[Rfam]
RNA sequence: ACCUGUUGUGGGCAGCGAGAGGUGUGUCCACAGCACCAGACAGAACACCGUGCCACGGGAACAUCGGGGCACUUCAGGGCGUU
Numbered sequence: 001a002c003c004u005g006u007u008g009u010g011g012g013c014a015g016c017g018a019g020a021g022g023u024g025u026g027u028c029c030a031c032a033g034c035a036c037c038a039g040a041c042a043g044a045a046c047a048c049c050g051u052g053c054c055a056c057g058g059g060a061a062c063a064u065c066g067g068g069g070c071a072c073u074u075c076a077g078g079g080c081g082u083u
Stems, first nucleotide, its partner, number of pairs: 004035011016024002050072005056066002
nrdJ RNA: an 83-nucleotide sequence from Streptomyces dysideae. By type it is a small RNA. The match comes from Rfam's covariance-model search (80 bits).